[Rfam]
RNA: mir-395 microRNA precursor family
Nucleotides: 105
Base pairs, nucleotide, nucleotide: 005101007099008098009097011095012094013093014092015091016090017089018088019087020086022085024082026080027079028078029077030076032074033073034072035071
Number, partner (000 for none) and nucleotide at each position: 001000c002000u003000g004000u005101c006000c007099u008098c009097u010000g011095g012094a013093g014092u015091u016090c017089c018088c019087c020086u021000g022085a023000c024082c025000a026080c027079u028078u029077c030076a031000c032074u033073g034072g035071g036000g037000g038000g039000u040000u041000a042000u043000g044000g045000g046000c047000c048000u049000a050000u051000g052000g053000g054000g055000u056000c057000u058000g059000c060000u061000c062000u063000u064000c065000u066000u067000g068000g069000a070000c071035c072034c073033u074032a075000c076030u077029g078028a079027a080026g081000a082024g083000u084000u085022u086020g087019g088018g089017g090016g091015a092014a093013c094012u095011c096000u097009g098008g099007g100000u101005g102000g103000c104000a105000c